[Rfam]
RNA sequence: GCGCUCAGGAUACGGAAUGCCCCGGCGAGCACCGGCGCGGGCCGGAUACCCUGGCCAGGUGCGUGCCCGAGCAAGCGGGCCGCAAAGCCGACAGCCGUCGCACCAGGGAGAAGCCCCAUG
Dot-bracket structure: ...........................................................((((..((((......)))).))))..((.(((....)))))...................
Numbered sequence: 001g002c003g004c005u006c007a008g009g010a011u012a013c014g015g016a017a018u019g020c021c022c023c024g025g026c027g028a029g030c031a032c033c034g035g036c037g038c039g040g041g042c043c044g045g046a047u048a049c050c051c052u053g054g055c056c057a058g059g060u061g062c063g064u065g066c067c068c069g070a071g072c073a074a075g076c077g078g079g080c081c082g083c084a085a086a087g088c089c090g091a092c093a094g095c096c097g098u099c100g101c102a103c104c105a106g107g108g109a110g111a112a113g114c115c116c117c118a119u120g
Stems, first nucleotide, its partner, number of pairs: 060084004066079004087101002090099003
The family of this 120-nucleotide RNA from Streptomyces sp. FH025 is "Streptomyces-metH RNA". Pairs were carried over by alignment from the consensus structure, which is taken from published work. Rfam classes the family as a small RNA. The organism belongs to Streptomyces, within Bacteria.